[Rfam]
RNA sequence: AGGACCCAAAUCACUUGGAUCCUGCCUCAGGACCCAAGGCUAAUGGGUCCUGCUUCAGGACCCAAUUUUCUUGGGUCUCGCGUCAGGAUCCAAGGGUAAUGAGUGUU
Numbered sequence: 001a002g003g004a005c006c007c008a009a010a011u012c013a014c015u016u017g018g019a020u021c022c023u024g025c026c027u028c029a030g031g032a033c034c035c036a037a038g039g040c041u042a043a044u045g046g047g048u049c050c051u052g053c054u055u056c057a058g059g060a061c062c063c064a065a066u067u068u069u070c071u072u073g074g075g076u077c078u079c080g081c082g083u084c085a086g087g088a089u090c091c092a093a094g095g096g097u098a099a100u101g102a103g104u105g106u107u
Stems, first nucleotide, its partner, number of pairs: 001107002004104002007101002014094011030078008044064007

The record is a 107-nucleotide sequence from Populus deltoides, which matches "MIR6450 microRNA precursor family" in Rfam. The base pairs follow the family's consensus structure, which was predicted with RNAalifold. It scores 70 bits against the family's covariance model.